[Rfam]
RNA: Small nucleolar RNA Z256
RNA sequence: AUUUGCCGGUCAUGUUGACUAUAGCAACCCGAGCAUGGCUGAUAGGACUCCUGAAGUACACCAUUAACAGCUGGUCCGAAUUGAAGGCCUAGUU
Numbered sequence: 001a002u003u004u005g006c007c008g009g010u011c012a013u014g015u016u017g018a019c020u021a022u023a024g025c026a027a028c029c030c031g032a033g034c035a036u037g038g039c040u041g042a043u044a045g046g047a048c049u050c051c052u053g054a055a056g057u058a059c060a061c062c063a064u065u066a067a068c069a070g071c072u073g074g075u076c077c078g079a080a081u082u083g084a085a086g087g088c089c090u091a092g093u094u
Stems, first nucleotide, its partner, number of pairs: 003092003007087001